[Rfam]
RNA sequence: GAGCUGUGAGGAAUUUGUGCGCUCUUAAGAUGGAUGGGGUCCAUCGUCUACAUCUGAUUCUCAGAUGAGAUCUGGUCAGCGCAACUGAGCUC
Numbered sequence: 001g002a003g004c005u006g007u008g009a010g011g012a013a014u015u016u017g018u019g020c021g022c023u024c025u026u027a028a029g030a031u032g033g034a035u036g037g038g039g040u041c042c043a044u045c046g047u048c049u050a051c052a053u054c055u056g057a058u059u060c061u062c063a064g065a066u067g068a069g070a071u072c073u074g075g076u077c078a079g080c081g082c083a084a085c086u087g088a089g090c091u092c
Base pairs, nucleotide, nucleotide: 001092002091003090004089
The family of this 92-nucleotide RNA from Hevea brasiliensis is "small nucleolar RNA snoR114". The family has 24 seed sequences and 1,645 matches in Rfam 15.1. Rfam classes the family as a C/D-box small nucleolar RNA. The family's consensus secondary structure was predicted with RNAalifold.